[Rfam]
The family of this 137-nucleotide sequence from Megalops atlanticus is "Small nucleolar RNA SNORA29". For this family Rfam cites "RNomics: an experimental approach that identifies 201 candidates for novel, small, non-messenger RNAs in mouse" (Huttenhofer et al., EMBO J, 2001). Its family is annotated with RNA processing and nucleolus in the Gene Ontology. The organism belongs to Megalops, within Eukaryota. Rfam's curators write: ACA29 is a member of the H/ACA class of snoRNA that guide the sites of modification of uridines to pseudouridines. By type it is an H/ACA-box small nucleolar RNA. A search with the family's covariance model found it, with a score of 69 bits.

RNA sequence: GAUCCCGUUUUAGUACCAUUCAUUCCCUUCACCACGAAUGACUGGCUAUGCUAAUGGGAGAGAGAAAUGCUGUCAUUGUCUGGAGGAGGGGUUUGUCUUUUCCACCUCUCUUAAAUGAAAUGACAGUACAUUGCAUG
Number, nucleotide and partner (000 for none) at each position: 001g000002a000003u000004c058005c057006c056007g055008u000009u000010u000011u000012a000013g000014u000015a000016c045017c044018a043019u000020u000021c000022a000023u000024u000025c000026c000027c000028u000029u000030c000031a000032c000033c000034a000035c000036g000037a000038a000039u000040g000041a000042c000043u018044g017045g016046c000047u000048a000049u000050g000051c000052u000053a000054a000055u007056g006057g005058g004059a000060g000061a000062g000063a000064g000065a000066a000067a000068u000069g000070c000071u000072g124073u123074c122075a121076u000077u000078g000079u000080c000081u000082g000083g000084a000085g000086g000087a000088g000089g112090g111091g110092u000093u000094u000095g000096u000097c000098u000099u000100u000101u000102c000103c000104a000105c000106c000107u000108c000109u000110c091111u090112u089113a000114a000115a000116u000117g000118a000119a000120a000121u075122g074123a073124c072125a000126g000127u000128a000129c000130a000131u000132u000133g000134c000135a000136u000137g000